This 98-nucleotide RNA from Actinomyces glycerinitolerans belongs to the Rfam family "ZMP/ZTP riboswitch aptamer (pfl RNA motif)". Its family is annotated with regulation of purine nucleotide biosynthetic process and one-carbon metabolic process in the Gene Ontology. Lineage of the source: Bacteria > Actinomycetes > Actinomycetales > Actinomycetaceae > Actinomyces.

RNA sequence: GGCCCCGGCCGCAACUGGCGAGGGUGGGGCACCACCGGGGAGCGGCCGGCCGGACAUCGGUAUCCCAAAACGGGACGUCGCCCGCCUGGGCGUCCCGC
Numbered sequence: 001g002g003c004c005c006c007g008g009c010c011g012c013a014a015c016u017g018g019c020g021a022g023g024g025u026g027g028g029g030c031a032c033c034a035c036c037g038g039g040g041a042g043c044g045g046c047c048g049g050c051c052g053g054a055c056a057u058c059g060g061u062a063u064c065c066c067a068a069a070a071c072g073g074g075a076c077g078u079c080g081c082c083c084g085c086c087u088g089g090g091c092g093u094c095c096c097g098c
Stems, first nucleotide, its partner, number of pairs: 005049008015039002017086004024035004075093005